[Rfam]
RNA sequence: GGAAGGGAUCCGCUCCCGGUGGGGCGGCCGGCCUUCAAAGCCGGUGGGGGACGCCAGGCGUUCCCGGGUGGGUUCGACUCCCAUUCCCUUCC
Dot-bracket structure: ((((((((..((((((....))))))((((((.......)))))).(((((.........)))))...((((.......)))).))))))))
The record is a 92-nucleotide sequence from Usitatibacter rugosus, which matches "Selenocysteine transfer RNA" in Rfam. The base pairs follow the family's consensus structure, which is taken from published work. Gene Ontology term of the family: triplet codon-amino acid adaptor activity.